[Rfam]
Record summary: Plastid-rpl16 group II-D1 intron: a 45-nucleotide sequence from Carya illinoinensis. NCBI's taxonomy places the organism under Eukaryota, Tracheophyta, Euphyllophyta, Magnoliopsida, Carya. The base pairs follow the family's consensus structure, which was predicted with LocARNA. Gene Ontology term of the family: Group II intron splicing. Rfam describes the family as follows. Plastid-rpl16 is a non-coding RNA (ncRNA) recognised in plastids. It was recognised in and intronic region of a ribosome rpl16 gene.

Nucleotides: 045
Stems, first nucleotide, its partner, number of pairs: 007041001010038008
Number, partner (000 for none) and nucleotide at each position: 001000a002000g003000g004000a005000g006000c007041c008000c009000c010038g011037a012036g013035u014034c015033a016032a017031u018000g019000a020000a021000g022000a023000c024000u025000g026000c027000g028000a029000a030000a031017a032016u033015u034014g035013a036012c037011u038010c039000a040000c041007g042000a043000a044000c045000a